Shown here is a 102-nucleotide sequence from Pseudogemmobacter humi, a member of the family "TPP riboswitch aptamer (THI element)". Rfam links the family to the GO term thiamine pyrophosphate binding. Lineage of the source: Bacteria > Pseudomonadati > Pseudomonadota > Paracoccaceae > Pseudogemmobacter. From the family's description: Vitamin B(1) in its active form thiamin pyrophosphate (TPP) is an essential coenzyme that is synthesised by coupling of pyrimidine and thiazole moieties in bacteria.
[Rfam]
RNA sequence: GGCCUCACCUCGGGGUGCCCCCUUAAAGGGCUGAGAUGCGCAAGCGGACCCGUUGAACCUGAACCGGAUCAUACCGGCGGAGGGAAGGUGCAUCGGAUCCAG
Numbered sequence: 001g002g003c004c005u006c007a008c009c010u011c012g013g014g015g016u017g018c019c020c021c022c023u024u025a026a027a028g029g030g031c032u033g034a035g036a037u038g039c040g041c042a043a044g045c046g047g048a049c050c051c052g053u054u055g056a057a058c059c060u061g062a063a064c065c066g067g068a069u070c071a072u073a074c075c076g077g078c079g080g081a082g083g084g085a086a087g088g089u090g091c092a093u094c095g096g097a098u099c100c101a102g
Stems, first nucleotide, its partner, number of pairs: 006090005011052004016046001017031004038045002058083003064077004